[Rfam]
RNA sequence: UCCUCACAUGGGAUAAUUUUUACUUCAUUCUCCCUUUGGAGGGCAGGUUAGAACAUGAAUGUAGUUUGCAUGAUCCAUGAUUCACAUCUUGGAGUAGUCACAACUUGCAGUGCCAUGAUUGCUUCUAUUUGCU
Numbered sequence: 001u002c003c004u005c006a007c008a009u010g011g012g013a014u015a016a017u018u019u020u021u022a023c024u025u026c027a028u029u030c031u032c033c034c035u036u037u038g039g040a041g042g043g044c045a046g047g048u049u050a051g052a053a054c055a056u057g058a059a060u061g062u063a064g065u066u067u068g069c070a071u072g073a074u075c076c077a078u079g080a081u082u083c084a085c086a087u088c089u090u091g092g093a094g095u096a097g098u099c100a101c102a103a104c105u106u107g108c109a110g111u112g113c114c115a116u117g118a119u120u121g122c123u124u125c126u127a128u129u130u131g132c133u
Base pairs, nucleotide, nucleotide: 024046025045028043029042030041031040032039033038072090073089094122095121096120097119098118099117100116

The family of this 133-nucleotide RNA sequence from Chlorocebus sabaeus is "U8 small nucleolar RNA". NCBI's taxonomy places the organism under Eukaryota, Tetrapoda, Haplorrhini, Catarrhini, Chlorocebus. The family has 55 seed sequences and 1,597 matches in Rfam 15.1. It scores 47 bits against the family's covariance model.